Annotation: Shown here is a 154-nucleotide RNA sequence from Oncorhynchus mykiss, a member of the family "U1 spliceosomal RNA". Its family is annotated with mRNA 5'-splice site recognition, pre-mRNA 5'-splice site binding and U1 snRNP in the Gene Ontology. From the family's description: U1 is a small nuclear RNA (snRNA) component of the spliceosome (involved in pre-mRNA splicing). For this family Rfam cites "The uRNA database" (Zwieb, Nucleic Acids Res, 1997).

RNA sequence: UUACAGUACCUGGCAGGGGAGACACCUUGAUCACGAAGGAGGUUCACACCCAGGGCGAGGUUUGGCCAUUGCACUCUGGAUGAGCUGAUCCCUCGAAUUCUCUACUGCAUAAUUUGUGGUAGUGGGGGACUGUGUCCGCACUCAUACACCCCAU
Number, nucleotide and partner (000 for none) at each position: 001u000002u000003a000004c000005a000006g000007u000008a000009c000010c000011u000012g000013g108014c107015a106016g105017g051018g050019g049020a000021g045022a044023c000024a043025c042026c041027u040028u039029g000030a000031u000032c000033a000034c000035g000036a000037a000038g000039g028040a027041g026042g025043u024044u022045c021046a000047c000048a000049c019050c018051c017052a093053g092054g091055g090056c000057g089058a000059g086060g085061u084062u000063u082064g081065g000066c079067c078068a000069u000070u000071g000072c000073a000074c000075u000076c000077u000078g067079g066080a000081u064082g063083a000084g061085c060086u059087g000088a000089u057090c055091c054092c053093u052094c000095g102096a101097a000098u000099u000100c000101u096102c095103u000104a000105c016106u015107g014108c013109a000110u000111a000112a000113u000114u000115u000116g000117u000118g000119g000120u000121a000122g000123u153124g152125g151126g150127g149128g000129a000130c000131u000132g141133u140134g139135u000136c000137c000138g000139c134140a133141c132142u000143c000144a000145u000146a000147c000148a000149c127150c126151c125152c124153a123154u000
A search with the family's covariance model found it, with a score of 88 bits.